rmf RNA: a 130-nucleotide RNA from Pseudomonas putida.
The sequence is in the family's curated seed alignment.
[Rfam]
RNA sequence: UUCGUUAGAACUGGUCUUAGGCCGCAUCGCAACGAGGCGGCACCUUCAGCUCGCCACGCCGGCAGCGAGCGCAAACCGGCAGAAAGACUCUGCCCGGCCUCGGAGAGGCCGACGGGACAUUACAGUCAAC
Dot-bracket structure: ....................(((.(.((.....)).).))).......((((((..........)))))).......((((((.....)))))).((((((...))))))....................